The record is a 122-nucleotide sequence from Triticum turgidum, which matches "MIR5084 microRNA precursor family" in Rfam.
The source organism's lineage runs through Eukaryota, Embryophyta, Magnoliopsida, Triticodae and Triticum turgidum.
The family has 2 seed sequences and 152 matches in Rfam 15.1.

RNA sequence: ACGGGGGUUGAGAUCCUCUGCAGUACCGUAUGAUGUUGUAGUGUCGAUGACAUGUGGGGUCAGGUCCUACAUGGCGGUGACUAUACAACACCAUACAGUACUGCAGAGGAUCCUAACCCCCU
Numbered sequence: 001a002c003g004g005g006g007g008u009u010g011a012g013a014u015c016c017u018c019u020g021c022a023g024u025a026c027c028g029u030a031u032g033a034u035g036u037u038g039u040a041g042u043g044u045c046g047a048u049g050a051c052a053u054g055u056g057g058g059g060u061c062a063g064g065u066c067c068u069a070c071a072u073g074g075c076g077g078u079g080a081c082u083a084u085a086c087a088a089c090a091c092c093a094u095a096c097a098g099u100a101c102u103g104c105a106g107a108g109g110a111u112c113c114u115a116a117c118c119c120c121c122u
Stems, first nucleotide, its partner, number of pairs: 003121007012112015028096005034090007051073010